Nucleotides: 076
Stems, first nucleotide, its partner, number of pairs: 003054006021042004
Number, partner (000 for none) and nucleotide at each position: 001000c002000c003054c004053g005052c006051u007050g008049a009000g010000g011000a012000g013000c014000g015000u016000u017000g018000c019000g020000u021042c022041c023040c024039c025000g026000c027000g028000g029000a030000a031000g032000g033000a034000a035000c036000c037000a038000g039024g040023g041022g042021g043000u044000c045000a046000g047000g048000c049008u050007c051006a052005g053004c054003g055000a056000a057000a058000a059000c060000a061000a062000c063000g064000g065000c066000g067000c068000u069000c070000g071000c072000a073000u074000c075000g076000g